Rfam assigns this 138-nucleotide sequence from Planctomyces sp. SCGC AG-212-M04 to the family "c-di-AMP riboswitch aptamer (ydaO/yuaA leader)".
RNA sequence: CGCAGUGAAUUGCCGAGCCCGGGCCGGAACGGCCUGGGACGGGGGACCCAGAACCUGGGGCAAAUCCAGCCGAGCGGCUGGACGGAGAAUUUCGGCUCCGAGCCCGUCAGCUAACCUCGUAGGCAUCCGAGAGGCUUU
Numbered sequence: 001c002g003c004a005g006u007g008a009a010u011u012g013c014c015g016a017g018c019c020c021g022g023g024c025c026g027g028a029a030c031g032g033c034c035u036g037g038g039a040c041g042g043g044g045g046a047c048c049c050a051g052a053a054c055c056u057g058g059g060g061c062a063a064a065u066c067c068a069g070c071c072g073a074g075c076g077g078c079u080g081g082a083c084g085g086a087g088a089a090u091u092u093c094g095g096c097u098c099c100g101a102g103c104c105c106g107u108c109a110g111c112u113a114a115c116c117u118c119g120u121a122g123g124c125a126u127c128c129g130a131g132a133g134g135c136u137u138u
Base pairs, nucleotide, nucleotide: 011125012124013123014122018038019037020036021035022034023033024032025031026030039120040119041118042117043116044115049057050056058105059104060103066081067080068079069078084099085098086097087096